[Rfam]
RNA sequence: AGCAAAAUGAUGAGCUACUAUGGUCUGAACUUAAUGUGGAAAACACAUUGUGGUCUUCAAAGUUCUCUGAUUGCU
Numbered sequence: 001a002g003c004a005a006a007a008u009g010a011u012g013a014g015c016u017a018c019u020a021u022g023g024u025c026u027g028a029a030c031u032u033a034a035u036g037u038g039g040a041a042a043a044c045a046c047a048u049u050g051u052g053g054u055c056u057u058c059a060a061a062g063u064u065c066u067c068u069g070a071u072u073g074c075u
Stems, first nucleotide, its partner, number of pairs: 001075005
The family of this 75-nucleotide sequence from Dioscorea zingiberensis is "Small nucleolar RNA R160". Rfam links the family to the GO terms RNA processing and nucleolus. The organism belongs to Dioscorea, within Eukaryota. By type it is a C/D-box small nucleolar RNA. About the family: snoR160 is a C/D box small nucleolar RNA, which acts as a methylation guide for 25S ribosomal RNA in plants. snoR160 has been alternatively named snoZ270 in rice.